Shown here is a 69-nucleotide sequence from Streptomyces netropsis, a member of the family "ASpks TB sRNA". It scores 70 bits against the family's covariance model. The source organism's lineage runs through Bacteria, Bacillati, Kitasatosporales, Streptomycetaceae and Streptomyces. The family's consensus secondary structure is taken from published work. Rfam classes the family as an antisense RNA.
RNA sequence: CUUCAACGAACCCAGCCGCAACGGCACCUCACGACCCUGGCCGUACGUGGCCAGCAGCGCCUGCGCCUC
Numbered sequence: 001c002u003u004c005a006a007c008g009a010a011c012c013c014a015g016c017c018g019c020a021a022c023g024g025c026a027c028c029u030c031a032c033g034a035c036c037c038u039g040g041c042c043g044u045a046c047g048u049g050g051c052c053a054g055c056a057g058c059g060c061c062u063g064c065g066c067c068u069c
Stems, first nucleotide, its partner, number of pairs: 015025003028065001030063001032059002037054003041050003